[Rfam]
Nucleotides: 075
Base pairs, nucleotide, nucleotide: 002073003072004071006069
Number, partner (000 for none) and nucleotide at each position: 001000u002073g003072a004071a005000c006069c007000a008000g009000u010000g011000a012000c013000g014000a015000c016000a017000g018000c019000u020000g021000g022000u023000g024000g025000c026000a027000u028000u029000u030000g031000a032000g033000u034000c035000g036000u037000g038000g039000a040000u041000g042000a043000u044000g045000a046000a047000u048000a049000u050000g051000a052000a053000g054000u055000g056000u057000c058000u059000g060000g061000a062000a063000c064000u065000c066000u067000g068000a069006g070000a071004u072003u073002c074000a075000a
The record is a 75-nucleotide sequence from Callithrix jacchus, which matches "Small nucleolar RNA SNORD113/SNORD114 family" in Rfam. The family's RNA type in Rfam is C/D-box small nucleolar RNA. The imprinted human domain at 14q32 contains two clusters of tandemly repeated small nucleolar RNAs named 14q(I) and 14q(II) snoRNAs. These two clusters are named SNORD113 and SNORD114 respectively in the HGNC approved gene symbol nomenclature. The family has 59 seed sequences and 5,721 matches in Rfam 15.1. Pairs were carried over by alignment from the consensus structure, which is taken from published work.